[Rfam]
RNA sequence: UAAUAAAGUUUUCUCCGAGCCUUAUUUCCUAAAGUAGAUGCUAUGGAAUGAGGUCUGGACUGAGUCCACGGAGUAAUAGAAGAAAUUCUAUUACUUGCUGUAUGCGAAGGAGAUGCAUGAAAAAAUGG
Numbered sequence: 001u002a003a004u005a006a007a008g009u010u011u012u013c014u015c016c017g018a019g020c021c022u023u024a025u026u027u028c029c030u031a032a033a034g035u036a037g038a039u040g041c042u043a044u045g046g047a048a049u050g051a052g053g054u055c056u057g058g059a060c061u062g063a064g065u066c067c068a069c070g071g072a073g074u075a076a077u078a079g080a081a082g083a084a085a086u087u088c089u090a091u092u093a094c095u096u097g098c099u100g101u102a103u104g105c106g107a108a109g110g111a112g113a114u115g116c117a118u119g120a121a122a123a124a125a126u127g128g
Stems, first nucleotide, its partner, number of pairs: 004121001012113005019054007027047003033042003056068005071096011097105002
Background:
Rfam assigns this 128-nucleotide sequence from Desulfitobacterium metallireducens to the family "Molybdenum/Tungsten riboswitch aptamer (Moco RNA motif)". Lineage of the source: Bacteria > Bacillati > Eubacteriales > Desulfitobacteriaceae > Desulfitobacterium metallireducens.